[Rfam]
RNA sequence: UUGUCUCUUGCUUCAGCAGUGUUUGGACAGAACGG
Numbered sequence: 001u002u003g004u005c006u007c008u009u010g011c012u013u014c015a016g017c018a019g020u021g022u023u024u025g026g027a028c029a030g031a032a033c034g035g
Stems, first nucleotide, its partner, number of pairs: 001035004006031003010028001012027005017021001